[Rfam]
RNA: Alphaproteobacteria transfer-messenger RNA
Organism: Hoeflea prorocentri
RNA sequence: GCCCUUUUCAAUCCGGACACGACGUCUUAUAUCUAGGGUGCUGUUUCGGCAGCUAUGGCGAUAAACGGAAGAUGCAAUAAACCCAUCGGACCCGGGGGCAGUACCCGGCGCCUCCACCACAACCGGCUCCGCCAGCACGGAGCGAAAGCCGAGACGGUUGUGAUGGGGGCGAUACAGGAUCGACGAGGGCGUAAAGAUCAACUUUUUGCCCGGCAUGGUUCCGCCGUUAUCGGGCCGACUCAAUAGUUGCAAACGACAACUAUGCGGAAGCGCGUCUCGCCGCUUAAUGCGGUGCGAUAGCUUCAAUUAAACUCCUGACCGGUCGCACGGUCAGGCGGGGUUCGGAGGCACCUGGCAACAGAAGCCUCCACU
Number, nucleotide and partner (000 for none) at each position: 001g000002c000003c000004c000005u000006u000007u000008u000009c000010a000011a000012u000013c000014c000015g000016g000017a000018c000019a000020c000021g000022a000023c000024g000025u000026c000027u000028u000029a000030u000031a000032u000033c000034u000035a000036g000037g000038g000039u000040g053041c052042u051043g050044u049045u000046u000047c000048g000049g044050c043051a042052g041053c040054u000055a000056u000057g210058g209059c208060g207061a206062u000063a000064a000065a000066c000067g203068g202069a000070a000071g199072a198073u197074g000075c000076a000077a000078u000079a000080a000081a000082c189083c188084c187085a000086u186087c185088g184089g000090a000091c000092c108093c107094g106095g105096g104097g000098g000099c000100a000101g000102u000103a000104c096105c095106c094107g093108g092109c171110g170111c169112c168113u167114c166115c165116a000117c000118c000119a000120c000121a000122a000123c000124c000125g000126g000127c000128u000129c000130c000131g000132c000133c000134a000135g000136c000137a000138c000139g000140g000141a000142g000143c000144g000145a000146a000147a000148g000149c000150c000151g000152a000153g000154a000155c000156g000157g000158u000159u000160g000161u000162g000163a000164u000165g115166g114167g113168g112169g111170c110171g109172a000173u000174a000175c000176a000177g000178g000179a000180u000181c000182g000183a000184c088185g087186a086187g084188g083189g082190c000191g000192u000193a000194a000195a000196g000197a073198u072199c071200a000201a000202c068203u067204u000205u000206u061207u060208g059209c058210c057211c226212g225213g224214c223215a000216u237217g236218g235219u000220u234221c233222c232223g214224c213225c212226g211227u000228u000229a000230u000231c000232g222233g221234g220235c218236c217237g216238a000239c000240u000241c000242a000243a000244u000245a000246g000247u000248u000249g000250c000251a000252a000253a000254c000255g000256a000257c000258a000259a000260c000261u000262a000263u000264g000265c000266g000267g000268a000269a000270g000271c000272g000273c000274g000275u000276c000277u000278c000279g000280c000281c000282g000283c000284u000285u000286a000287a000288u000289g000290c000291g000292g000293u000294g000295c000296g000297a000298u000299a000300g000301c000302u000303u000304c000305a000306a000307u000308u000309a000310a000311a000312c000313u000314c000315c000316u000317g000318a000319c000320c000321g000322g000323u000324c000325g000326c000327a000328c000329g000330g000331u000332c000333a000334g000335g000336c000337g000338g353339g352340g351341u350342u000343c000344g369345g368346a367347g366348g365349c364350a341351c340352c339353u338354g000355g000356c000357a000358a000359c000360a000361g000362a000363a000364g349365c348366c347367u346368c345369c344370a000371c000372u000